[Rfam]
RNA sequence: CGGAUCAGCCUUAAGGGUUGGUCUGACGGGGCAGAAGUCAGCCGAGGCCGUAGUACCGGCGGGAAUCGCAAGAUUGUCGGGAAGGGC
Numbered sequence: 001c002g003g004a005u006c007a008g009c010c011u012u013a014a015g016g017g018u019u020g021g022u023c024u025g026a027c028g029g030g031g032c033a034g035a036a037g038u039c040a041g042c043c044g045a046g047g048c049c050g051u052a053g054u055a056c057c058g059g060c061g062g063g064a065a066u067c068g069c070a071a072g073a074u075u076g077u078c079g080g081g082a083a084g085g086g087c
Base pairs, nucleotide, nucleotide: 001025002024004022005021006020007019008018009017010016011015038045039044047087048086049085056080057079058078059077060076061075
Dot-bracket structure: ((.((((((((...)))))))).))............((....)).(((......((((((.............))))))....)))